[Rfam]
RNA sequence: CGCGAUAAAACGUGACCCCACACACGCAUCGACACAUGGUCCCGGGUGCCGCGCGAGCGGUCGGACCCAUGGGAUGCGUGGAGGCCUAAC
Numbered sequence: 001c002g003c004g005a006u007a008a009a010a011c012g013u014g015a016c017c018c019c020a021c022a023c024a025c026g027c028a029u030c031g032a033c034a035c036a037u038g039g040u041c042c043c044g045g046g047u048g049c050c051g052c053g054c055g056a057g058c059g060g061u062c063g064g065a066c067c068c069a070u071g072g073g074a075u076g077c078g079u080g081g082a083g084g085c086c087u088a089a090c
Stems, first nucleotide, its partner, number of pairs: 023080008035071005040065003048061005
RNA: t44 RNA
Organism: Kushneria sinocarnis